[Rfam]
RNA sequence: CAAGUCACUAGUGGUUCCGUUUAGUAGAUGAUUAUGCAUUGUUUCAAAAUGGUGCCCUAGUGACUGCAA
Numbered sequence: 001c002a003a004g005u006c007a008c009u010a011g012u013g014g015u016u017c018c019g020u021u022u023a024g025u026a027g028a029u030g031a032u033u034a035u036g037c038a039u040u041g042u043u044u045c046a047a048a049a050u051g052g053u054g055c056c057c058u059a060g061u062g063a064c065u066g067c068a069a
Base pairs, nucleotide, nucleotide: 003065004064005063006062007061008060009059010058011057013056014055015054017052018051019050020049021048022047024045026044027043028042029041030040031039032038
RNA: mir-224 microRNA precursor family
Organism: Canis lupus